[Rfam]
RNA sequence: CUUCAUCGAGUUCACUCCUCCUCCCAGAACUCGAUAAGGAAUGCGGCACUCCUCCUCCCAAGCCGUAUUCAAGAUCAGGCCGCGCAUCCUCCUCCCGCGCGGCCUUUUUC
Numbered sequence: 001c002u003u004c005a006u007c008g009a010g011u012u013c014a015c016u017c018c019u020c021c022u023c024c025c026a027g028a029a030c031u032c033g034a035u036a037a038g039g040a041a042u043g044c045g046g047c048a049c050u051c052c053u054c055c056u057c058c059c060a061a062g063c064c065g066u067a068u069u070c071a072a073g074a075u076c077a078g079g080c081c082g083c084g085c086a087u088c089c090u091c092c093u094c095c096c097g098c099g100c101g102g103c104c105u106u107u108u109u110c
Stems, first nucleotide, its partner, number of pairs: 007033007039070009077105009